[Rfam]
RNA sequence: UACAAGCAGGGUGAUGGAGCUCACCUCAACCGCGCACUCGGCAUGGCCCGAUCGCUGAUGGCUCCUACAGUUCU
Dot-bracket structure: .........[[[[..((((((]]]]......(((..................)))....)))))).........